RNA sequence: AAAAAAAUAGGACUUCUCUUCCCAGUUCUUCCUGGAGUUGGGAAAAGUUGGGUUGAGAGGGCAGGAAAGAAUAAAA
Numbered sequence: 001a002a003a004a005a006a007a008u009a010g011g012a013c014u015u016c017u018c019u020u021c022c023c024a025g026u027u028c029u030u031c032c033u034g035g036a037g038u039u040g041g042g043a044a045a046a047g048u049u050g051g052g053u054u055g056a057g058a059g060g061g062c063a064g065g066a067a068a069g070a071a072u073a074a075a076a
Base pairs, nucleotide, nucleotide: 014059015058016057017056018055021052022051023050024049025048029044030043031042032041033040034039
RNA: mir-320 microRNA precursor family
Organism: Aotus nancymaae